[Rfam]
About this RNA: A member of the RNA family "mir-67 microRNA precursor family" from Rhodnius prolixus, 82 nucleotides long. The source organism's lineage runs through Eukaryota, Opisthokonta, Pterygota, Cimicomorpha and Rhodnius. Gene Ontology terms of the family: RISC complex and miRNA-mediated post-transcriptional gene silencing. The family's consensus secondary structure was predicted with RNAalifold. The literature on the family includes a 2008 paper in Insect Biochem Mol Biol by Cao et al., "Identification of conserved microRNAs in Bombyx mori (silkworm) and regulation of fibroin L chain production by microRNAs in heterologous system".

RNA sequence: GGUUAUGUUGACUCACUCAAUCUGGGUGUGAUGUGCAAGUUAAUGUCCCCAUCACAACCUCCUUGAGUGAGCGAAUAUAACC
Numbered sequence: 001g002g003u004u005a006u007g008u009u010g011a012c013u014c015a016c017u018c019a020a021u022c023u024g025g026g027u028g029u030g031a032u033g034u035g036c037a038a039g040u041u042a043a044u045g046u047c048c049c050c051a052u053c054a055c056a057a058c059c060u061c062c063u064u065g066a067g068u069g070a071g072c073g074a075a076u077a078u079a080a081c082c
Stems, first nucleotide, its partner, number of pairs: 008074003012071009024059002027056007